[Rfam]
RNA: Mammalian CPEB3 ribozyme
RNA sequence: AGAGGUCACAAUUUUGAGGUCAUAGCAGAAGUGCUCGCAGCACAGCCCUGUCAGAGUCUAACAAAUCUGCAAAUUCUGCU
Numbered sequence: 001a002g003a004g005g006u007c008a009c010a011a012u013u014u015u016g017a018g019g020u021c022a023u024a025g026c027a028g029a030a031g032u033g034c035u036c037g038c039a040g041c042a043c044a045g046c047c048c049u050g051u052c053a054g055a056g057u058c059u060a061a062c063a064a065a066u067c068u069g070c071a072a073a074u075u076c077u078g079c080u
Stems, first nucleotide, its partner, number of pairs: 016048001018047003024080007031043003052069004057064001